Annotation: The family of this 68-nucleotide RNA sequence is "S15-Flavobacteria ribosomal protein leader". Clan: Ribosomal Protein S15 Leader clan. The literature on the family includes a 2020 paper in BMC Microbiol by Eckert and Weinberg, "Discovery of 20 novel ribosomal leader candidates in bacteria and archaea". The sequence is in the family's curated seed alignment. It is annotated as a cis-regulatory leader.
RNA sequence: UAUAUUUGCAAACUAAUUGCGAAAGACGUAGUUAACAGCAUAAAAAUUAUUUAAAUAAUAUUGGAAUG
Numbered sequence: 001u002a003u004a005u006u007u008g009c010a011a012a013c014u015a016a017u018u019g020c021g022a023a024a025g026a027c028g029u030a031g032u033u034a035a036c037a038g039c040a041u042a043a044a045a046a047u048u049a050u051u052u053a054a055a056u057a058a059u060a061u062u063g064g065a066a067u068g
Base pairs, nucleotide, nucleotide: 014034015033016032017031018030019029